[Rfam]
RNA sequence: UUACAAUUAAAGGAUAUUUCUUGGCGACAGCAACAAACGGAAAUAUCUCUUAAUUGUUGGGA
Numbered sequence: 001u002u003a004c005a006a007u008u009a010a011a012g013g014a015u016a017u018u019u020c021u022u023g024g025c026g027a028c029a030g031c032a033a034c035a036a037a038c039g040g041a042a043a044u045a046u047c048u049c050u051u052a053a054u055u056g057u058u059g060g061g062a
Base pairs, nucleotide, nucleotide: 003057004056005055006054007053008052009051010050012048013047014046015045016044017043018042019041020040021039024034
Dot-bracket structure: ..((((((((.((((((((((..(.........)....)))))))))).)))))))).....

This 62-nucleotide sequence from Clupea harengus belongs to the Rfam family "mir-7552 microRNA precursor family". Taxonomically the source falls in Clupea (Eukaryota, Chordata, Teleostomi, Actinopteri).